[Rfam]
RNA sequence: CCAUCAUCGCCAUCAUCCUGACUAGUCUUUCAGGUGAUGAGUGCUGGAAGACGCUUUAAUCUUCCAGUGGCGCAAGAAUGUUCAGAGAGAGCCCUCGGAAGAUUUCUUCCGAGGGCUUUUUGGC
Numbered sequence: 001c002c003a004u005c006a007u008c009g010c011c012a013u014c015a016u017c018c019u020g021a022c023u024a025g026u027c028u029u030u031c032a033g034g035u036g037a038u039g040a041g042u043g044c045u046g047g048a049a050g051a052c053g054c055u056u057u058a059a060u061c062u063u064c065c066a067g068u069g070g071c072g073c074a075a076g077a078a079u080g081u082u083c084a085g086a087g088a089g090a091g092c093c094c095u096c097g098g099a100a101g102a103u104u105u106c107u108u109c110c111g112a113g114g115g116c117u118u119u120u121u122g123g124c
Stems, first nucleotide, its partner, number of pairs: 008043003011039004017034005044067008086121016
RNA: Histidine operon leader
Organism: Sodalis glossinidius